[Rfam]
RNA sequence: UAUUAGGUUGGUGCAAAAGUAAUUGCAGUUUUUGCCAUUAAAAUUAAUGGCAAAAAUAGCAAUUAUUUUUGUACCAGCCUAAUA
Dot-bracket structure: ((((((((((((((((((((((((((.(((((((((((((....))))))))))))).))))))))))))))))))))))))))
Numbered sequence: 001u002a003u004u005a006g007g008u009u010g011g012u013g014c015a016a017a018a019g020u021a022a023u024u025g026c027a028g029u030u031u032u033u034g035c036c037a038u039u040a041a042a043a044u045u046a047a048u049g050g051c052a053a054a055a056a057u058a059g060c061a062a063u064u065a066u067u068u069u070u071g072u073a074c075c076a077g078c079c080u081a082a083u084a
Stems, first nucleotide, its partner, number of pairs: 001084026028057013
Shown here is an 84-nucleotide sequence from Rhinopithecus roxellana, a member of the family "mir-548 microRNA precursor family".
A search with the family's covariance model found it, with a score of 90 bits.
The base pairs follow the family's consensus structure, which was predicted with WAR.
Gene Ontology terms of the family: miRNA-mediated post-transcriptional gene silencing and RISC complex.
NCBI's taxonomy places the organism under Eukaryota, Opisthokonta, Gnathostomata, Colobinae, Rhinopithecus.